[Rfam]
RNA sequence: CGGACAGGGGGGUUCCUGCCCAACGGCAGGGCCUGUCCGACCGGUUGCGCGAGAGUGCGGCCAGUGGUUGUCGCUCGGGGGUGAUCGCCG
Numbered sequence: 001c002g003g004a005c006a007g008g009g010g011g012g013u014u015c016c017u018g019c020c021c022a023a024c025g026g027c028a029g030g031g032c033c034u035g036u037c038c039g040a041c042c043g044g045u046u047g048c049g050c051g052a053g054a055g056u057g058c059g060g061c062c063a064g065u066g067g068u069u070g071u072c073g074c075u076c077g078g079g080g081g082u083g084a085u086c087g088c089c090g
Stems, first nucleotide, its partner, number of pairs: 001039008014031007043062008
RNA: che1 RNA
Organism: Streptomyces sp. CNT372